Bacterial RNase P class A: a 395-nucleotide RNA sequence from Hufsiella ginkgonis. Lineage of the source: Bacteria > Pseudomonadati > Sphingobacteriia > Sphingobacteriaceae > Hufsiella. It is annotated as a ribozyme.

RNA sequence: GGAGCAAGCUGGUCUAUCGCUCCGUUUGGAGAGGAAAGUCCGGGCAACACAGAGCGUCUCGCUUCCUAACGGGAAGAGGGCAGUCCUGAUAGCAUUCUGAGCUUGGCGAAGAGUGAAAUCGGGCCGCUGUCAAUGGAAAGUGCCACAGAAAAGAAACUGCCUCGCCCCUGGCGCGGUAACGGUGAAAACGUGAGGUAAGAGCUCACGGCUCUGCAUGGCGACAUGCACCGACGGUAAACCCCGGGAGUUGAAAGGCCAAAUAGGUCAUGGAGCUGCUCGCUCACUAACAUGAUGGGUAGGCCGUUAGAUCGUGUCAGCAAUGGCACGGCCAGAUAAAUGAUAGGCAUCCCGCGUACGCGGGAGAACAGAACCCGGCUUACAGGCUUGUUUUUUUG
Numbered sequence: 001g002g003a004g005c006a007a008g009c010u011g012g013u014c015u016a017u018c019g020c021u022c023c024g025u026u027u028g029g030a031g032a033g034g035a036a037a038g039u040c041c042g043g044g045c046a047a048c049a050c051a052g053a054g055c056g057u058c059u060c061g062c063u064u065c066c067u068a069a070c071g072g073g074a075a076g077a078g079g080g081c082a083g084u085c086c087u088g089a090u091a092g093c094a095u096u097c098u099g100a101g102c103u104u105g106g107c108g109a110a111g112a113g114u115g116a117a118a119u120c121g122g123g124c125c126g127c128u129g130u131c132a133a134u135g136g137a138a139a140g141u142g143c144c145a146c147a148g149a150a151a152a153g154a155a156a157c158u159g160c161c162u163c164g165c166c167c168c169u170g171g172c173g174c175g176g177u178a179a180c181g182g183u184g185a186a187a188a189c190g191u192g193a194g195g196u197a198a199g200a201g202c203u204c205a206c207g208g209c210u211c212u213g214c215a216u217g218g219c220g221a222c223a224u225g226c227a228c229c230g231a232c233g234g235u236a237a238a239c240c241c242c243g244g245g246a247g248u249u250g251a252a253a254g255g256c257c258a259a260a261u262a263g264g265u266c267a268u269g270g271a272g273c274u275g276c277u278c279g280c281u282c283a284c285u286a287a288c289a290u291g292a293u294g295g296g297u298a299g300g301c302c303g304u305u306a307g308a309u310c311g312u313g314u315c316a317g318c319a320a321u322g323g324c325a326c327g328g329c330c331a332g333a334u335a336a337a338u339g340a341u342a343g344g345c346a347u348c349c350c351g352c353g354u355a356c357g358c359g360g361g362a363g364a365a366c367a368g369a370a371c372c373c374g375g376c377u378u379a380c381a382g383g384c385u386u387g388u389u390u391u392u393u394u395g
Base pairs, nucleotide, nucleotide: 001391002390003389004388005387006386007385008384009383010382011380012345013344014343015342016341017340018339020031021030022029023028036378037377038376040375041374042373043372044371045250046249047248048247052282053281054280055279057246058245059244060243061242062076063075064074065073066072077134079131080130081129082128083127084126135241136240140239141238142235143234144233157181159177160176161175163173164172165171166170189207190206191205192204193203194202212227213226214225215224216223217222254302255301256300257299264293265292266291267290268289269288274286275285277283309328310327311326312325313324314323315322316321